[Rfam]
About this RNA:
This 70-nucleotide RNA from Methylomonas paludis belongs to the Rfam family "int-alpA RNA". Pairs were carried over by alignment from the consensus structure, which is taken from published work. NCBI's taxonomy places the organism under Bacteria, Pseudomonadota, Methylococcales, Methylococcaceae, Methylomonas. Rfam classes the family as a small RNA.
RNA sequence: ACCAAGCCUAGCUCGACGGGGCGAAAGCAGGAAACCUUCAACCGGUUGGCUUGGUUUCCUUUUUUUGAGG
Numbered sequence: 001a002c003c004a005a006g007c008c009u010a011g012c013u014c015g016a017c018g019g020g021g022c023g024a025a026a027g028c029a030g031g032a033a034a035c036c037u038u039c040a041a042c043c044g045g046u047u048g049g050c051u052u053g054g055u056u057u058c059c060u061u062u063u064u065u066u067g068a069g070g
Stems, first nucleotide, its partner, number of pairs: 001055008011022004027046002030043002035070004040065001